[Rfam]
RNA sequence: AUCUUCCAAAACGACAAAAGCCCUGCCUCUCUUUUGCCCUUGCGGCUCCGCGGCCGCUCCAGUGUGAGUCGGAAAUCUAUGUGCGAA
Numbered sequence: 001a002u003c004u005u006c007c008a009a010a011a012c013g014a015c016a017a018a019a020g021c022c023c024u025g026c027c028u029c030u031c032u033u034u035u036g037c038c039c040u041u042g043c044g045g046c047u048c049c050g051c052g053g054c055c056g057c058u059c060c061a062g063u064g065u066g067a068g069u070c071g072g073a074a075a076u077c078u079a080u081g082u083g084c085g086a087a
Stems, first nucleotide, its partner, number of pairs: 034067003039062002042057006

About this RNA:
Rfam assigns this 87-nucleotide RNA sequence from Paenibacillus sp. NFR01 to the family "BsrC". About the family: The 301 nucleotide sequence from Kouji Nakamura has been trimmed to a highly conserved ~85 nucleotide long core to form this family. The family's consensus secondary structure was predicted with CMfinder. A search with the family's covariance model found it, with a score of 60 bits.